[Rfam]
RNA sequence: GGCGCGCUCUUUGCGCUCACUCAAACAUCCGCAAUCAACGUCGAUUGCCCCAUCACGACAAAGGCGCCGU
Dot-bracket structure: ..............................((((((......))))))......................
Numbered sequence: 001g002g003c004g005c006g007c008u009c010u011u012u013g014c015g016c017u018c019a020c021u022c023a024a025a026c027a028u029c030c031g032c033a034a035u036c037a038a039c040g041u042c043g044a045u046u047g048c049c050c051c052a053u054c055a056c057g058a059c060a061a062a063g064g065c066g067c068c069g070u
Stems, first nucleotide, its partner, number of pairs: 031048006
A member of the RNA family "narK RNA" from Pseudomonas sp. M47T1, 70 nucleotides long. It is one of the family's seed sequences. Taxonomically the source falls in Pseudomonas (Bacteria, Pseudomonadati, Pseudomonadota, Pseudomonadaceae). The family's consensus secondary structure is taken from published work.